[Rfam]
RNA: Ribosomal protein L10 leader
RNA sequence: AAGUACAUACGUUUUUGGCUGAAGACAGCAGGCAGGAGCAAUCCUUUAAAACUCGCCCGCCGAGGUCGGAACAUCGCAAGAUAAUCCUGCGGUCUCCGGGUCUUCGGCCAGAGACCGCAUUUUGUUUUGUGAU
Numbered sequence: 001a002a003g004u005a006c007a008u009a010c011g012u013u014u015u016u017g018g019c020u021g022a023a024g025a026c027a028g029c030a031g032g033c034a035g036g037a038g039c040a041a042u043c044c045u046u047u048a049a050a051a052c053u054c055g056c057c058c059g060c061c062g063a064g065g066u067c068g069g070a071a072c073a074u075c076g077c078a079a080g081a082u083a084a085u086c087c088u089g090c091g092g093u094c095u096c097c098g099g100g101u102c103u104u105c106g107g108c109c110a111g112a113g114a115c116c117g118c119a120u121u122u123u124g125u126u127u128u129g130u131g132a133u
Stems, first nucleotide, its partner, number of pairs: 028060002031057003034045003089118008098109001